[Rfam]
Nucleotides: 146
Stems, first nucleotide, its partner, number of pairs: 003068006010062002019056005024050001026047002082138005090129002093126009
Number, partner (000 for none) and nucleotide at each position: 001000u002000u003068g004067c005066a006065c007064g008063g009000u010062g011061c012000a013000a014000a015000c016000c017000c018000c019056g020055g021054g022053c023052u024050c025000g026047u027046c028000g029000g030000a031000u032000u033000a034000a035000c036000a037000c038000c039000c040000u041000u042000u043000g044000a045000a046027g047026a048000a049000g050024g051000a052023a053022g054021c055020c056019c057000c058000a059000a060000u061011g062010c063008c064007u065006g066005u067004g068003c069000u070000a071000g072000a073000u074000c075000u076000a077000g078000c079000a080000u081000g082138c083137c084136g085135u086134u087000c088000a089000g090129u091128g092000u093126u094125g095124c096123a097122g098121g099120c100119c101118a102000u103000g104000a105000c106000c107000a108000a109000u110000u111000u112000u113000g114000u115000g116000a117000a118101u119100g120099g121098u122097c123096u124095g125094u126093g127000u128091c129090a130000a131000a132000g133000c134086a135085a136084u137083g138082g139000a140000u141000a142000c143000a144000g145000a146000u

small nucleolar RNA snoR134: a 146-nucleotide sequence from Paspalum vaginatum. It scores 113 bits against the family's covariance model. NCBI's taxonomy places the organism under Eukaryota, Euphyllophyta, Petrosaviidae, Andropogonodae, Paspalum. The base pairs follow the family's consensus structure, which was predicted with RNAalifold.